RNA sequence: ACAGGAUUGAUUUUAACUUUUUGUUUUAUCACGAAGGUUUAAUCCCCUCUGUCAACGUAUGUAACGAAUUGCUGUGUGUAGUCUUUGCCCGUCAUCUGUGAUGGGCUUUUUUUUUA
Dot-bracket structure: .((((..............)))).........((.((...........)).))................(((...)))........(((((((......)))))))..........